This 113-nucleotide RNA from Capsicum baccatum belongs to the Rfam family "MIR162_1 microRNA precursor family". The base pairs follow the family's consensus structure, which was predicted with RNAalifold. Its Rfam clan is "MIR167 microRNA precursor clan". The family has 36 seed sequences and 270 matches in Rfam 15.1. Taxonomically the source falls in Capsicum (Eukaryota, Streptophytina, Euphyllophyta, Mesangiospermae). For this family Rfam cites "MicroRNAs in plants" (Reinhart et al., Genes Dev, 2002).
[Rfam]
RNA sequence: GUUGAAGACACUGGACGCAGUGGUUCAUCGAUCUAUUCCCUUAACACUGAUAUAUAUGCAAAAAACAGCAAAAGGGAAUCGGUCGAUAAACCUCUGCAUCCAGUGCUUAACCU
Numbered sequence: 001g002u003u004g005a006a007g008a009c010a011c012u013g014g015a016c017g018c019a020g021u022g023g024u025u026c027a028u029c030g031a032u033c034u035a036u037u038c039c040c041u042u043a044a045c046a047c048u049g050a051u052a053u054a055u056a057u058g059c060a061a062a063a064a065a066c067a068g069c070a071a072a073a074g075g076g077a078a079u080c081g082g083u084c085g086a087u088a089a090a091c092c093u094c095u096g097c098a099u100c101c102a103g104u105g106c107u108u109a110a111c112c113u
Stems, first nucleotide, its partner, number of pairs: 013101003018096003022092004027087007036078003